[Rfam]
RNA sequence: CCACUGGUAACGGUGGGGUCCGGAGGAAGCCGAUGGGGGAACUUGGAACAUAGCGCAAGCGAUACCGAAGUUGGCUCAUCAGAUGGGUAACCUUGCAAGAAGUGGGAAAGCCCGAAAGCUAGUAGACCUGGUGAGUUAGGACGGAUGAGUUCAAGUUCAGGCAAGCAGA
Numbered sequence: 001c002c003a004c005u006g007g008u009a010a011c012g013g014u015g016g017g018g019u020c021c022g023g024a025g026g027a028a029g030c031c032g033a034u035g036g037g038g039g040a041a042c043u044u045g046g047a048a049c050a051u052a053g054c055g056c057a058a059g060c061g062a063u064a065c066c067g068a069a070g071u072u073g074g075c076u077c078a079u080c081a082g083a084u085g086g087g088u089a090a091c092c093u094u095g096c097a098a099g100a101a102g103u104g105g106g107a108a109a110g111c112c113c114g115a116a117a118g119c120u121a122g123u124a125g126a127c128c129u130g131g132u133g134a135g136u137u138a139g140g141a142c143g144g145a146u147g148a149g150u151u152c153a154a155g156u157u158c159a160g161g162c163a164a165g166c167a168g169a
Stems, first nucleotide, its partner, number of pairs: 001016006030168001032166001036162001041156006049147003065144003074136003078132005084126001085113004091106003
Background
The family of this 169-nucleotide RNA from Pelotomaculum isophthalicicum is "Group II catalytic intron D1-D4-3". Pairs were carried over by alignment from the consensus structure. Group II introns are found in rRNA, tRNA and mRNA of organelles in fungi, plants and protists, and also in mRNA in bacteria. Lineage of the source: Bacteria > Bacillota > Desulfotomaculaceae > Pelotomaculum > Pelotomaculum isophthalicicum. Gene Ontology term of the family: Group II intron splicing.